[Rfam]
RNA sequence: CACUAGGUAACCCUGAAUUCUUUUGAGUGCUGGAUUGAUGCUGUUUUCUAGCACCAUUGGAAUUCAGUUCAUCUGGUG
Numbered sequence: 001c002a003c004u005a006g007g008u009a010a011c012c013c014u015g016a017a018u019u020c021u022u023u024u025g026a027g028u029g030c031u032g033g034a035u036u037g038a039u040g041c042u043g044u045u046u047u048c049u050a051g052c053a054c055c056a057u058u059g060g061a062a063u064u065c066a067g068u069u070c071a072u073c074u075g076g077u078g
Base pairs, nucleotide, nucleotide: 013067014066015065016064017063018062019061020060021059024056025055027054028053030051031050033048034047
mir-83 microRNA precursor family: a 78-nucleotide RNA sequence from Soboliphyme baturini. A reference for the family is Lau et al. (2001), "An abundant class of tiny RNAs with probable regulatory roles in Caenorhabditis elegans", Science. The match comes from Rfam's covariance-model search (45 bits). Rfam 15.1 lists 60 matches to the family in 55 species. The organism belongs to Soboliphyme, within Eukaryota. Gene Ontology terms of the family: miRNA-mediated post-transcriptional gene silencing and RISC complex.